[Rfam]
RNA sequence: UUAAGCUUGCGCCCAUGAACCGCCUCCAGUCCACACUUCGACGUCGCCGCUCGCUUCCCGUCCCGGAUGCCGCCGGCUCGUCACGGACUCGCGCCUAACCCGCUUCCCUGUUACGCGCAAGCUGUUCGAACCAUCCAGCCACGGCAUGCACCGUGGCUUUUUU
Numbered sequence: 001u002u003a004a005g006c007u008u009g010c011g012c013c014c015a016u017g018a019a020c021c022g023c024c025u026c027c028a029g030u031c032c033a034c035a036c037u038u039c040g041a042c043g044u045c046g047c048c049g050c051u052c053g054c055u056u057c058c059c060g061u062c063c064c065g066g067a068u069g070c071c072g073c074c075g076g077c078u079c080g081u082c083a084c085g086g087a088c089u090c091g092c093g094c095c096u097a098a099c100c101c102g103c104u105u106c107c108c109u110g111u112u113a114c115g116c117g118c119a120a121g122c123u124g125u126u127c128g129a130a131c132c133a134u135c136c137a138g139c140c141a142c143g144g145c146a147u148g149c150a151c152c153g154u155g156g157c158u159u160u161u162u163u
Base pairs, nucleotide, nucleotide: 005131007129008128011094012093014091031086032085039080040079041078043077044076045075046073047072049070050069054065137158138157139156140155141154142153143152144151
Dot-bracket structure: ....(.((..((.(................((......(((.(((((.((...(..........)...)).)).))))))....))....).)).................................)).).....((((((((......)))))))).....